Shown here is a 123-nucleotide RNA from Rhizobium sp. Root149, a member of the family "Alphaproteobacterial ar14". The pairing is the family consensus, mapped onto this sequence. Gene Ontology term of the family: biological process involved in symbiotic interaction. Lineage of the source: Bacteria > Pseudomonadota > Hyphomicrobiales > Rhizobiaceae > Rhizobium. The match comes from Rfam's covariance-model search (80 bits). The family's RNA type in Rfam is small RNA. Smr14C2 was renamed NfeR1 (Nodule Formation Efficiency RNA) highly expressed in salt stress and during the symbiotic interaction on legume roots.

[Rfam]
RNA sequence: GUGCUUCGACUGAUGGCUCCUCCUCCCAUGCGAUCGUCGAAAUGGCCUGGCGACCUCCUCCUCCCAUUCGCCGGCCAACCCCAAUGACGCCCGCCGGUCCUCCUCCCCCGGCGGGCGUUAUGC
Numbered sequence: 001g002u003g004c005u006u007c008g009a010c011u012g013a014u015g016g017c018u019c020c021u022c023c024u025c026c027c028a029u030g031c032g033a034u035c036g037u038c039g040a041a042a043u044g045g046c047c048u049g050g051c052g053a054c055c056u057c058c059u060c061c062u063c064c065c066a067u068u069c070g071c072c073g074g075c076c077a078a079c080c081c082c083a084a085u086g087a088c089g090c091c092c093g094c095c096g097g098u099c100c101u102c103c104u105c106c107c108c109c110g111g112c113g114g115g116c117g118u119u120a121u122g123c
Stems, first nucleotide, its partner, number of pairs: 007039003011036004016031002044076004049072005087118011